[Rfam]
RNA sequence: CAGGCUGUUGUCAAUGAUGAAACAUAGUUAAGCUGAAAAGAAUGAUUUAAUUCAGUUCCUUCGUCACUACCACUGAGACAACAUAUGG
Dot-bracket structure: (.(..(((((((................................................................)))))))..).)
The family of this 88-nucleotide RNA sequence from Callipepla squamata is "Small nucleolar RNA SNORD70". The organism belongs to Callipepla, within Eukaryota. The family has 21 seed sequences and 1,085 matches in Rfam 15.1. On this family, see Huttenhofer et al., EMBO J 2001: "RNomics: an experimental approach that identifies 201 candidates for novel, small, non-messenger RNAs in mouse".